[Rfam]
RNA sequence: AUGAAUCCCAGUAUCUGCAUAUUGUUGGUACAGCCCACACCACUUGAAUGCAGCACUUGAAUGCAGGUUUGAAAUAUAGCCAUGUGAUUAUAUAAUAAAACCUGCAUUCAAGUGGUGUGGGCUGUACCAACAAUAUGCAGGUUUCAAAUA
Numbered sequence: 001a002u003g004a005a006u007c008c009c010a011g012u013a014u015c016u017g018c019a020u021a022u023u024g025u026u027g028g029u030a031c032a033g034c035c036c037a038c039a040c041c042a043c044u045u046g047a048a049u050g051c052a053g054c055a056c057u058u059g060a061a062u063g064c065a066g067g068u069u070u071g072a073a074a075u076a077u078a079g080c081c082a083u084g085u086g087a088u089u090a091u092a093u094a095a096u097a098a099a100a101c102c103u104g105c106a107u108u109c110a111a112g113u114g115g116u117g118u119g120g121g122c123u124g125u126a127c128c129a130a131c132a133a134u135a136u137g138c139a140g141g142u143u144u145c146a147a148a149u150a
Stems, first nucleotide, its partner, number of pairs: 011145001013143001015141001023132031
RNA: Wolbachia sRNA 46